[Rfam]
Shown here is a 95-nucleotide sequence from Bacteroides sp. CAG:189, a member of the family "TPP riboswitch aptamer (THI element)".
A search with the family's covariance model found it, with a score of 65 bits.

RNA sequence: GUAAAGACAAAGGGGUGCCCGGCAAGACGGGCUGAGAUCAUACCCUGGAACCUGAUGCAGUUAGUACUGACGUAGGGAUUGUGUUACUUCAUUAC
Numbered sequence: 001g002u003a004a005a006g007a008c009a010a011a012g013g014g015g016u017g018c019c020c021g022g023c024a025a026g027a028c029g030g031g032c033u034g035a036g037a038u039c040a041u042a043c044c045c046u047g048g049a050a051c052c053u054g055a056u057g058c059a060g061u062u063a064g065u066a067c068u069g070a071c072g073u074a075g076g077g078a079u080u081g082u083g084u085u086a087c088u089u090c091a092u093u094a095c
Base pairs, nucleotide, nucleotide: 007082008081009080010079011046012045013044014043016040017032018031019030020029021028051076052075053074054073058069059068060067
Rfam's curators write: Vitamin B(1) in its active form thiamin pyrophosphate (TPP) is an essential coenzyme that is synthesised by coupling of pyrimidine and thiazole moieties in bacteria. The source organism's lineage runs through Bacteria, Pseudomonadati, Bacteroidota, Bacteroidaceae and Bacteroides. The base pairs follow the family's consensus structure, which is taken from published work.